[Rfam]
RNA sequence: CCCGCCACUAUGCCCGUCUGUCUCCGUGACGGAGUGUAAUCCAGUGGAGGCUCAGAGGGACCCGGCUUUAGGAAACAGGGCUGCCCCGAACCCAUGGGCAACUCUGUGCCGCAAAGACUGGAACAAAC
Numbered sequence: 001c002c003c004g005c006c007a008c009u010a011u012g013c014c015c016g017u018c019u020g021u022c023u024c025c026g027u028g029a030c031g032g033a034g035u036g037u038a039a040u041c042c043a044g045u046g047g048a049g050g051c052u053c054a055g056a057g058g059g060a061c062c063c064g065g066c067u068u069u070a071g072g073a074a075a076c077a078g079g080g081c082u083g084c085c086c087c088g089a090a091c092c093c094a095u096g097g098g099c100a101a102c103u104c105u106g107u108g109c110c111g112c113a114a115a116g117a118c119u120g121g122a123a124c125a126a127a128c
Base pairs, nucleotide, nucleotide: 005047006046007045008044009043018034019033021029022028062121063120064119065118066116067115068114069113071110072109076106077105078104079103080102084098085097086096
Rfam assigns this 128-nucleotide RNA sequence from Etheostoma spectabile to the family "Small nucleolar RNA SNORA65". Rfam's curators write: U65 belongs to the H/ACA class of snoRNAs which are thought to guide the sites of modification of uridines to pseudouridines. Its Rfam clan is "SNORA65 clan". The base pairs follow the family's consensus structure, which was predicted with RNAalifold. The match comes from Rfam's covariance-model search (92 bits). For this family Rfam cites "RNomics: an experimental approach that identifies 201 candidates for novel, small, non-messenger RNAs in mouse" (Huttenhofer et al., EMBO J, 2001). It is annotated as an H/ACA-box small nucleolar RNA.